Source information: Shown here is a 91-nucleotide RNA from Chloropsis cyanopogon, a member of the family "Small nucleolar RNA snoR8a". It is annotated as a C/D-box small nucleolar RNA. The base pairs follow the family's consensus structure, which was predicted with WAR. Lineage of the source: Eukaryota > Theropoda > Aves > Neognathae > Chloropsis. The literature on the family includes a 2001 paper in RNA by Brown et al., "Multiple snoRNA gene clusters from Arabidopsis". The match comes from Rfam's covariance-model search (39 bits).
RNA sequence: UCUGUGGCAGUGAAAAUGACAGUAAUGCCAAGUUCACAAAGCAGUUGCCAGGGUCUGCCAGAUACAUUUAUUCCUAAAAAAUGUGUGCCCA
Numbered sequence: 001u002c003u004g005u006g007g008c009a010g011u012g013a014a015a016a017u018g019a020c021a022g023u024a025a026u027g028c029c030a031a032g033u034u035c036a037c038a039a040a041g042c043a044g045u046u047g048c049c050a051g052g053g054u055c056u057g058c059c060a061g062a063u064a065c066a067u068u069u070a071u072u073c074c075u076a077a078a079a080a081a082u083g084u085g086u087g088c089c090c091a
Stems, first nucleotide, its partner, number of pairs: 003091002006089002